[Rfam]
RNA sequence: AGUUGCAAGUUUGAGGCCACAAAAGAAGUGCUAGUGGCCUGGUCCUGUCAGAUUCCAAUGAAAUCUGUAAAUUCUGCU
Numbered sequence: 001a002g003u004u005g006c007a008a009g010u011u012u013g014a015g016g017c018c019a020c021a022a023a024a025g026a027a028g029u030g031c032u033a034g035u036g037g038c039c040u041g042g043u044c045c046u047g048u049c050a051g052a053u054u055c056c057a058a059u060g061a062a063a064u065c066u067g068u069a070a071a072u073u074c075u076g077c078u
Base pairs, nucleotide, nucleotide: 013045015044016043017042018041021078024075025074026073027072028040030038049067050066051065052064053063054062